[Rfam]
RNA sequence: CAAAUCCUGAAGUGUUCGUUAUUUGCCAAUCAGUUUUGACCGAACAUAAUAUCGUCGGGAACCUAUAUUUCGAUUAGGAUGGCAAGCCCUUCAAUGGGACGUCAAAGUAAUUGAAUAGGGCACCCACCUGCUGAGUGCGGGUUCAAAACGAUACUACAAAGACGGCACAAUCGGGAUUUGU
Number, nucleotide and partner (000 for none) at each position: 001c000002a179003a178004a177005u176006c175007c174008u173009g172010a171011a000012g168013u167014g166015u165016u000017c164018g163019u162020u000021a000022u000023u000024u000025g000026c000027c000028a000029a000030u000031c000032a000033g149034u148035u147036u000037u145038g144039a143040c141041c140042g000043a000044a000045c000046a000047u000048a000049a000050u000051a000052u000053c000054g000055u000056c000057g125058g124059g123060a000061a000062c120063c119064u118065a000066u000067a000068u115069u000070u114071c113072g112073a111074u110075u109076a108077g000078g000079a000080u000081g000082g102083c101084a000085a000086g000087c098088c097089c096090u000091u000092c000093a000094a000095u000096g089097g088098g087099a000100c000101g083102u082103c000104a000105a000106a000107g000108u076109a075110a074111u073112u072113g071114a070115a068116u000117a000118g064119g063120g062121c000122a000123c059124c058125c057126a000127c000128c000129u000130g000131c000132u000133g000134a000135g000136u000137g000138c000139g000140g041141g040142u000143u039144c038145a037146a000147a035148a034149c033150g000151a000152u000153a000154c000155u000156a000157c000158a000159a000160a000161g000162a019163c018164g017165g015166c014167a013168c012169a000170a000171u010172c009173g008174g007175g006176a005177u004178u003179u002180g000181u000
RNA: 6S / SsrS RNA
Organism: Filibacter tadaridae